[Rfam]
RNA sequence: GGGGGUGUACCGGUUUCGACGGGGGUAUGGAGACGGGACCAGCGGGCGGAUGCGCCCAGCAUCCUGAAAAUGGGCAAUUUAUAAAUUAAACAACAACAGACAAGUUGCUGUCGCUGCCUAAUUAAGGCGGCCGUCUGAACCGGAGAGGCCACAGGCCGGGGAAGGCGUCGUUGAUGUGGCGUCCGUGAGGCGGGAAAGAGUUGACCCGCCCAUGCAUCAUGACUCUGACCCGACCAAUCGGCGUGACGGCUUGCCGGUUGGAAGGGAAACGGGAAGAAAGACUUCCACAAUAACCGUCUGCGCCCGGAGAAAGUCCCGUUGAAGUGCUUUCGGACGGGGGUUCAACUCCCCCCACCUCCACCA
Numbered sequence: 001g002g003g004g005g006u007g008u009a010c011c012g013g014u015u016u017c018g019a020c021g022g023g024g025g026u027a028u029g030g031a032g033a034c035g036g037g038a039c040c041a042g043c044g045g046g047c048g049g050a051u052g053c054g055c056c057c058a059g060c061a062u063c064c065u066g067a068a069a070a071u072g073g074g075c076a077a078u079u080u081a082u083a084a085a086u087u088a089a090a091c092a093a094c095a096a097c098a099g100a101c102a103a104g105u106u107g108c109u110g111u112c113g114c115u116g117c118c119u120a121a122u123u124a125a126g127g128c129g130g131c132c133g134u135c136u137g138a139a140c141c142g143g144a145g146a147g148g149c150c151a152c153a154g155g156c157c158g159g160g161g162a163a164g165g166c167g168u169c170g171u172u173g174a175u176g177u178g179g180c181g182u183c184c185g186u187g188a189g190g191c192g193g194g195a196a197a198g199a200g201u202u203g204a205c206c207c208g209c210c211c212a213u214g215c216a217u218c219a220u221g222a223c224u225c226u227g228a229c230c231c232g233a234c235c236a237a238u239c240g241g242c243g244u245g246a247c248g249g250c251u252u253g254c255c256g257g258u259u260g261g262a263a264g265g266g267a268a269a270c271g272g273g274a275a276g277a278a279a280g281a282c283u284u285c286c287a288c289a290a291u292a293a294c295c296g297u298c299u300g301c302g303c304c305c306g307g308a309g310a311a312a313g314u315c316c317c318g319u320u321g322a323a324g325u326g327c328u329u330u331c332g333g334a335c336g337g338g339g340g341u342u343c344a345a346c347u348c349c350c351c352c353c354a355c356c357u358c359c360a361c362c363a
Stems, first nucleotide, its partner, number of pairs: 001359007020332009032320008043306005048064005054075005110131006132167005140159004148180006186219003190215003194211001200229004230265002234261006241254003245298004251293001336352005
RNA: transfer-messenger RNA